A member of the RNA family "Lysine riboswitch aptamer" from Brevibacillus centrosporus, 183 nucleotides long. Lineage of the source: Bacteria > Bacillati > Bacilli > Paenibacillaceae > Brevibacillus. Rfam 15.1 lists 3,224 matches to the family in 1,923 species. Riboswitches are metabolite binding domains within certain messenger RNAs that serve as precision sensors for their corresponding targets.
RNA sequence: CAGUGAGGUAGAGGCGCGAUGUUUAACAGUCCUUAGCGGAGCUUGAGACGCUGUGAUGCUAGGGAGAAGGAAAUGUCGCCGAAGCUUGUAAUACGCUCGGUAUUACUUGCUGGGUCUGCAGUUAAGAGCUGCAGGACUGUCUCAAUAAAUUGUCCCGAUUUAUUGAGUUGUGCUAUCUCAUUU
Numbered sequence: 001c002a003g004u005g006a007g008g009u010a011g012a013g014g015c016g017c018g019a020u021g022u023u024u025a026a027c028a029g030u031c032c033u034u035a036g037c038g039g040a041g042c043u044u045g046a047g048a049c050g051c052u053g054u055g056a057u058g059c060u061a062g063g064g065a066g067a068a069g070g071a072a073a074u075g076u077c078g079c080c081g082a083a084g085c086u087u088g089u090a091a092u093a094c095g096c097u098c099g100g101u102a103u104u105a106c107u108u109g110c111u112g113g114g115u116c117u118g119c120a121g122u123u124a125a126g127a128g129c130u131g132c133a134g135g136a137c138u139g140u141c142u143c144a145a146u147a148a149a150u151u152g153u154c155c156c157g158a159u160u161u162a163u164u165g166a167g168u169u170g171u172g173c174u175a176u177c178u179c180a181u182u183u
Stems, first nucleotide, its partner, number of pairs: 006178006016079009031064008083111003088106007112138002115135008141167010
Dot-bracket structure: .....((((((....(((((((((......((((((((..................))))))))......)))))))))...(((..(((((((.....)))))))..)))((.((((((((.....)))))))).))..((((((((((.......)))))))))).....)))))).....